[Rfam]
RNA sequence: CACCGCCCGUCGCUACUACCGAUCGAACGAUUUAGCGAGGUCUUCGGACCGACGCCCGUCGGCCUACCGUCGACGGACGCGUGGGAAAGUCGACCGAACUUGAUCGUUUAGAGGAAGUAAAAGUCGUAACAAGGUUUCCGUAGGUGAACCUGCGGAAGGAUCAUUA
Numbered sequence: 001c002a003c004c005g006c007c008c009g010u011c012g013c014u015a016c017u018a019c020c021g022a023u024c025g026a027a028c029g030a031u032u033u034a035g036c037g038a039g040g041u042c043u044u045c046g047g048a049c050c051g052a053c054g055c056c057c058g059u060c061g062g063c064c065u066a067c068c069g070u071c072g073a074c075g076g077a078c079g080c081g082u083g084g085g086a087a088a089g090u091c092g093a094c095c096g097a098a099c100u101u102g103a104u105c106g107u108u109u110a111g112a113g114g115a116a117g118u119a120a121a122a123g124u125c126g127u128a129a130c131a132a133g134g135u136u137u138c139c140g141u142a143g144g145u146g147a148a149c150c151u152g153c154g155g156a157a158g159g160a161u162c163a164u165u166a
Stems, first nucleotide, its partner, number of pairs: 003133001005130001008126002011123001014119004019114002023110001025109008034100002039095004045089001049085002052082002054078001056076008135158010
Dot-bracket structure: ..(.(..((.(..((((.((..(.((((((((.((...((((..(...((.(((.((((((((.....)))))))).)..)).))...)..))))...)).)))))))))..)).))))...).))...)..).((((((((((....))))))))))........